[Rfam]
RNA sequence: UGCUCUGUGAUUACAUGCCUUCUCAGGCAAUAUACGCUAUUCUGAAACGCAAUAAUGUGGAUAGAUCUAUUGAAUGGAAAUGAGAGCU
Dot-bracket structure: .((((..............................................................................)))).
A member of the RNA family "Small nucleolar RNA U54" from Cucurbita maxima, 88 nucleotides long. Gene Ontology terms of the family: RNA processing and nucleolus. Rfam's curators write: U54 is a C/D box small nucleolar RNA, which acts as a methylation guide for 18S ribosomal RNA in plants. The family is grouped with related families in Rfam's "U54 clan". Pairs were carried over by alignment from the consensus structure, which was predicted with PFOLD. The match comes from Rfam's covariance-model search (50 bits).